The record is an 87-nucleotide RNA sequence from Malus domestica, which matches "MIR3627 microRNA precursor family" in Rfam.
Gene Ontology terms of the family: RISC complex and miRNA-mediated post-transcriptional gene silencing.
The organism belongs to Malus, within Eukaryota.
Pairs were carried over by alignment from the consensus structure, which was predicted with RNAalifold.
Rfam 15.1 lists 24 matches to the family in 10 species.
Rfam's curators put it in the seed alignment.
RNA sequence: GGAGAUUUAUGUUCGCAGGAGAGAUGGCACUAAUUGUGCUACAACUACAAGCAAUUGUUGCCAUCUUUCCCGUGACCAAAAAGCUCU
Numbered sequence: 001g002g003a004g005a006u007u008u009a010u011g012u013u014c015g016c017a018g019g020a021g022a023g024a025u026g027g028c029a030c031u032a033a034u035u036g037u038g039c040u041a042c043a044a045c046u047a048c049a050a051g052c053a054a055u056u057g058u059u060g061c062c063a064u065c066u067u068u069c070c071c072g073u074g075a076c077c078a079a080a081a082a083g084c085u086c087u
Base pairs, nucleotide, nucleotide: 002086003085004084006082007081008080010078011077013075014074015073016072018070019069020068021067022066023065024064025063026062027061028060029059031057032056033055034054035053036052037051